[Rfam]
RNA sequence: AUCAUCAAAGCUGGGGCUGUAUCAUAACCAGUCUGGUUAUUUUAGAAGCAUGGGUAUGAUACGACCUCAGUUUGUUGAUGAU
Numbered sequence: 001a002u003c004a005u006c007a008a009a010g011c012u013g014g015g016g017c018u019g020u021a022u023c024a025u026a027a028c029c030a031g032u033c034u035g036g037u038u039a040u041u042u043u044a045g046a047a048g049c050a051u052g053g054g055u056a057u058g059a060u061a062c063g064a065c066c067u068c069a070g071u072u073u074g075u076u077g078a079u080g081a082u
Stems, first nucleotide, its partner, number of pairs: 001082007009072008018063009028053003031049002033045003
Background
The record is an 82-nucleotide RNA sequence from Gasterosteus aculeatus, which matches "mir-729 microRNA precursor family" in Rfam.